This 99-nucleotide RNA sequence from Peribacillus cavernae belongs to the Rfam family "Guanidine-I riboswitch aptamer". Taxonomically the source falls in Peribacillus (Bacteria, Bacillati, Bacilli, Bacillaceae). Rfam links the family to the GO term regulation of gene expression. About the family: This family represents a conserved RNA structure found upstream of the ykkC and yxkD genes in Bacillus subtilis and related genes in other bacteria. The function of this family is unclear although it has been suggested that it may function to switch on efflux pumps and detoxification systems in response to harmful environmental molecules.
[Rfam]
RNA sequence: AUACGAGUUUUCUAGGGUUUCCGCGGCCAAUUGCCGGACUGGUCCGAGAGAAAACGGCAGCUUAGUGCUGUUACACGGAAGGAUAAAAGCCCGGGAGAA
Number, nucleotide and partner (000 for none) at each position: 001a000002u000003a000004c000005g000006a000007g055008u054009u053010u052011u051012c050013u000014a000015g045016g044017g000018u000019u000020u000021c042022c041023g039024c036025g035026g034027c033028c000029a000030a000031u000032u000033g027034c026035c025036g024037g000038a000039c023040u000041g022042g021043u000044c016045c015046g000047a000048g000049a000050g012051a011052a010053a009054a008055c007056g072057g071058c070059a069060g068061c067062u000063u000064a000065g000066u000067g061068c060069u059070g058071u057072u056073a000074c094075a000076c097077g000078g000079a000080a000081g091082g090083a000084u000085a000086a000087a000088a000089g000090c082091c081092c000093g000094g074095g000096a000097g076098a000099a000